A member of the RNA family "Small nucleolar RNA R160" from Tripterygium wilfordii, 78 nucleotides long. Rfam links the family to the GO terms nucleolus and RNA processing. Rfam describes the family as follows. snoR160 is a C/D box small nucleolar RNA, which acts as a methylation guide for 25S ribosomal RNA in plants. snoR160 has been alternatively named snoZ270 in rice. The match comes from Rfam's covariance-model search (63 bits). The family's RNA type in Rfam is C/D-box small nucleolar RNA. The base pairs follow the family's consensus structure.

[Rfam]
RNA sequence: AGCAAGAUGAUGAAGUUCUUUAAUCUGAAUGUGGCUGUUGAAUUUGAUCUUAUUAGCCUUCAAAGUUCUCUGAUUGCU
Numbered sequence: 001a002g003c004a005a006g007a008u009g010a011u012g013a014a015g016u017u018c019u020u021u022a023a024u025c026u027g028a029a030u031g032u033g034g035c036u037g038u039u040g041a042a043u044u045u046g047a048u049c050u051u052a053u054u055a056g057c058c059u060u061c062a063a064a065g066u067u068c069u070c071u072g073a074u075u076g077c078u
Stems, first nucleotide, its partner, number of pairs: 001078005
Record summary
On this family, see Chen et al., Nucleic Acids Res 2003: "The high diversity of snoRNAs in plants: identification and comparative study of 120 snoRNA genes from Oryza sativa".